The family of this 73-nucleotide sequence is "RAGATH-1 hammerhead ribozyme". Gene Ontology term of the family: RNA nuclease activity. Pairs were carried over by alignment from the consensus structure, which is taken from published work.
[Rfam]
RNA sequence: AAGACAGUCUAGGAGUCUAUAAAAUUGUUACUGAAGAGACUAGAACGAAACUUCUUUAAUUAGAAGUCUAACA
Numbered sequence: 001a002a003g004a005c006a007g008u009c010u011a012g013g014a015g016u017c018u019a020u021a022a023a024a025u026u027g028u029u030a031c032u033g034a035a036g037a038g039a040c041u042a043g044a045a046c047g048a049a050a051c052u053u054c055u056u057u058a059a060u061u062a063g064a065a066g067u068c069u070a071a072c073a
Stems, first nucleotide, its partner, number of pairs: 002018004008044005026073005038046001050067006